Bacterial large subunit ribosomal RNA: a 587-nucleotide part of an RNA from uncultured bacterium Ak20-3. Rfam's curators put it in the seed alignment. Gene Ontology terms of the family: ribosome and structural constituent of ribosome.
RNA sequence: CCCGCAGCUAGACGGAAAGACCCCGUGAACCUUUACUAUAGCUUGACACUGUUAUUCGGAUUCGUUUGUGUAGAAUAGGUGGGAGACAUUGAAGCGAAGGCGCUAGCUUUCGCAGAGUCAAAAGUGAAAUACCACCCUAAUGGAUCUGGAUAUCUAACCUAGUCCUGUAAACCAGGAUGGGGACCGUGUCUGGUAGGUAGUUUGACUGGGGCGGUCGCCUCCUAAAGAGUAACGGAGGCGCGCGAAGGUUCCCUCAGACCGGAUGGAAAUCGGUCGAAGAGUGCAAAUGCAGAAGGGAGCUUGACUGCGAGACAGACAAGUCAAGCAGGUACGAAAGUAGGCGUUAGUGACCCGGUGGCACUGAAUGGAAGGGCCAUCGCUCAACGGAUAAAAGGUACUCCGGGGAUAACAGGCUGAUCUCCUCCAAGAGUUCACAUCGACGAGGAGGUUUGGCACCUCGAUGUCGGCUCAUCACAUCCUGGGGCUGGAGCAGGUCCCAAGGGUUUGGCUGUUCGCCAAUUAAAGUGGUACGCGAGCUGGGUUCAGAACGUCGUGAGACAGUUCGGUCCCUAUCUGCUGUGGGCGUA
Numbered sequence: 001c002c003c004g005c006a007g008c009u010a011g012a013c014g015g016a017a018a019g020a021c022c023c024c025g026u027g028a029a030c031c032u033u034u035a036c037u038a039u040a041g042c043u044u045g046a047c048a049c050u051g052u053u054a055u056u057c058g059g060a061u062u063c064g065u066u067u068g069u070g071u072a073g074a075a076u077a078g079g080u081g082g083g084a085g086a087c088a089u090u091g092a093a094g095c096g097a098a099g100g101c102g103c104u105a106g107c108u109u110u111c112g113c114a115g116a117g118u119c120a121a122a123a124g125u126g127a128a129a130u131a132c133c134a135c136c137c138u139a140a141u142g143g144a145u146c147u148g149g150a151u152a153u154c155u156a157a158c159c160u161a162g163u164c165c166u167g168u169a170a171a172c173c174a175g176g177a178u179g180g181g182g183a184c185c186g187u188g189u190c191u192g193g194u195a196g197g198u199a200g201u202u203u204g205a206c207u208g209g210g211g212c213g214g215u216c217g218c219c220u221c222c223u224a225a226a227g228a229g230u231a232a233c234g235g236a237g238g239c240g241c242g243c244g245a246a247g248g249u250u251c252c253c254u255c256a257g258a259c260c261g262g263a264u265g266g267a268a269a270u271c272g273g274u275c276g277a278a279g280a281g282u283g284c285a286a287a288u289g290c291a292g293a294a295g296g297g298a299g300c301u302u303g304a305c306u307g308c309g310a311g312a313c314a315g316a317c318a319a320g321u322c323a324a325g326c327a328g329g330u331a332c333g334a335a336a337g338u339a340g341g342c343g344u345u346a347g348u349g350a351c352c353c354g355g356u357g358g359c360a361c362u363g364a365a366u367g368g369a370a371g372g373g374c375c376a377u378c379g380c381u382c383a384a385c386g387g388a389u390a391a392a393a394g395g396u397a398c399u400c401c402g403g404g405g406a407u408a409a410c411a412g413g414c415u416g417a418u419c420u421c422c423u424c425c426a427a428g429a430g431u432u433c434a435c436a437u438c439g440a441c442g443a444g445g446a447g448g449u450u451u452g453g454c455a456c457c458u459c460g461a462u463g464u465c466g467g468c469u470c471a472u473c474a475c476a477u478c479c480u481g482g483g484g485c486u487g488g489a490g491c492a493g494g495u496c497c498c499a500a501g502g503g504u505u506u507g508g509c510u511g512u513u514c515g516c517c518a519a520u521u522a523a524a525g526u527g528g529u530a531c532g533c534g535a536g537c538u539g540g541g542u543u544c545a546g547a548a549c550g551u552c553g554u555g556a557g558a559c560a561g562u563u564c565g566g567u568c569c570c571u572a573u574c575u576g577c578u579g580u581g582g583g584c585g586u587a
Base pairs, nucleotide, nucleotide: 001583002582003581004580005579006578007577008576010575011574012573014570015569022404023403024402025401027400028399029396030395031394032393033392035201036200037199038198042193043192045190046189047188048187051154053152054151055150056149057148058147059146060145061144062143063142064141065140066139068137078136079135080134081133082132085119086118087117094113095112096111097110098109099108100107101106158181159180160179162178163177164176165175166174167173204216205215206214207213217239218238219237220236221235222234240385242342243341248300249299250298251297252296253295254280255279257275258274259273260272261271262270281290282289305328306327307326308325311322312321313320330339331338332337353379354378355377356376357375358374359373361372362371413454414453415452417451418448419447420446421445422444423443424442428438429437465540466538467537468536469535470532471529472528473527474526475525478503479502481498482497483496484495485494486493505519506518507517508516509515546564547563548562549561550559551558552557